Annotation
Rfam assigns this 73-nucleotide sequence from Clostridium thermosuccinogenes to the family "tRNA". Its family is annotated with triplet codon-amino acid adaptor activity in the Gene Ontology.
RNA sequence: CGGGGUGUAGCGCAGCUGGUAGCGCACGUGGUUUGGGACCAUGGGGCCGGAGGUUCGAGUCCUCUCACCCCGA
Numbered sequence: 001c002g003g004g005g006u007g008u009a010g011c012g013c014a015g016c017u018g019g020u021a022g023c024g025c026a027c028g029u030g031g032u033u034u035g036g037g038a039c040c041a042u043g044g045g046g047c048c049g050g051a052g053g054u055u056c057g058a059g060u061c062c063u064c065u066c067a068c069c070c071c072g073a
Stems, first nucleotide, its partner, number of pairs: 001072007010025004027043005049065005
Dot-bracket structure: (((((((..((((........)))).(((((.......))))).....(((((.......)))))))))))).

It scores 65 bits against the family's covariance model.